[Rfam]
Overview
The family of this 121-nucleotide sequence from Pontibacillus chungwhensis is "PyrR binding site". The family has 41 seed sequences and 1,498 matches in Rfam 15.1.
RNA sequence: AAGACCUUUAAAACAGUCCCGUGAGGCUGAGAAGGGUACGGAUAAAAGAGACAGUUAUGUCCCUAGUCGGGUAAACGUCUAUCUAAAUCCCCUUCUACCACGGUAGAAGGGGAUUUUUUCG
Number, nucleotide and partner (000 for none) at each position: 001a000002a000003g037004a000005c035006c034007u033008u032009u031010a000011a000012a000013a000014c029015a028016g027017u026018c025019c000020c000021g000022u000023g000024a000025g018026g017027c016028u015029g014030a000031g009032a008033a007034g006035g005036g000037u003038a000039c000040g000041g000042a000043u000044a000045a000046a000047a082048g000049a080050g079051a078052c077053a000054g000055u074056u073057a072058u071059g000060u069061c000062c000063c000064u000065a000066g000067u000068c000069g060070g000071g058072u057073a056074a055075a000076c000077g052078u051079c050080u049081a000082u047083c000084u000085a116086a115087a114088u113089c112090c111091c110092c109093u108094u107095c106096u105097a104098c103099c000100a000101c000102g000103g098104u097105a096106g095107a094108a093109g092110g091111g090112g089113a088114u087115u086116u085117u000118u000119u000120c000121g000